[Rfam]
Streptomyces sRNA 4677: a 264-nucleotide sequence from Streptomyces laurentii. A reference for the family is Hindra et al. (2014), "Complex intra-operonic dynamics mediated by a small RNA in Streptomyces coelicolor", PLoS One. From the family's description: Located in the intergenic region between anti-sigma factor SCO4677 gene and a putative regulatory protein gene SCO4676. scr4677 expression requires the SCO4677 activity and scr4677 sRNA itself seem to affect the levels of the SCO4676-associated transcripts. A search with the family's covariance model found it, with a score of 58 bits. The family has 12 seed sequences and 563 matches in Rfam 15.1.

RNA sequence: CGCCCCGGCCCGCUUGACGCCCUUGGUAAGUACUGGGGGAAAGAACUACCUACCUCACCCUCCCCUACCUCACCCUCCCCUACCUCUCCCUACCUACCCCAACUACCCCGAUUCCACGAUCGGGUGACAAAAGGUUUGGAAGGCGGGCGAGUACCCGCGGAUGCGGUACGGUCGCCACAAACGACCCCGCAAAAGCAAACGCGGCCCCCGCCGGGACUGGCAUCCCGACGAGGGCCUACCGUUCAGGAAGAAAACAGCUUCCCA
Numbered sequence: 001c002g003c004c005c006c007g008g009c010c011c012g013c014u015u016g017a018c019g020c021c022c023u024u025g026g027u028a029a030g031u032a033c034u035g036g037g038g039g040a041a042a043g044a045a046c047u048a049c050c051u052a053c054c055u056c057a058c059c060c061u062c063c064c065c066u067a068c069c070u071c072a073c074c075c076u077c078c079c080c081u082a083c084c085u086c087u088c089c090c091u092a093c094c095u096a097c098c099c100c101a102a103c104u105a106c107c108c109c110g111a112u113u114c115c116a117c118g119a120u121c122g123g124g125u126g127a128c129a130a131a132a133g134g135u136u137u138g139g140a141a142g143g144c145g146g147g148c149g150a151g152u153a154c155c156c157g158c159g160g161a162u163g164c165g166g167u168a169c170g171g172u173c174g175c176c177a178c179a180a181a182c183g184a185c186c187c188c189g190c191a192a193a194a195g196c197a198a199a200c201g202c203g204g205c206c207c208c209c210g211c212c213g214g215g216a217c218u219g220g221c222a223u224c225c226c227g228a229c230g231a232g233g234g235c236c237u238a239c240c241g242u243u244c245a246g247g248a249a250g251a252a253a254a255c256a257g258c259u260u261c262c263c264a
Base pairs, nucleotide, nucleotide: 007243008242009241015072016071017070019069085127086126088124089123090122142176143175144174145173146172203236204235205234206233207232209230210229213226214225215224216223246262247261248260249259250258